The record is a 79-nucleotide RNA from Hermetia illucens, which matches "drz-agam-1 ribozyme" in Rfam. It scores 39 bits against the family's covariance model. For this family Rfam cites "Widespread occurrence of self-cleaving ribozymes" (Webb et al., Science, 2009).

RNA sequence: UACUACCAAACCCUAUCUCCACCUCCACGUGGUGACCGCUGAGAGCUCUUUGUUAACGAAAAGCUGCAGAUGGAGAAGG
Number, nucleotide and partner (000 for none) at each position: 001u000002a000003c000004u000005a000006c000007c000008a000009a000010a000011c000012c079013c078014u077015a000016u075017c000018u073019c072020c000021a033022c032023c031024u000025c000026c000027a000028c000029g000030u000031g023032g022033u021034g000035a000036c000037c000038g000039c000040u000041g000042a000043g000044a065045g064046c063047u062048c000049u060050u059051u058052g057053u000054u000055a000056a000057c052058g051059a050060a049061a000062a047063g046064c045065u044066g000067c000068a000069g000070a000071u000072g019073g018074a000075g016076a000077a014078g013079g012
The family's consensus secondary structure is taken from published work.
NCBI's taxonomy places the organism under Eukaryota, Bilateria, Neoptera, Hermetiinae, Hermetia.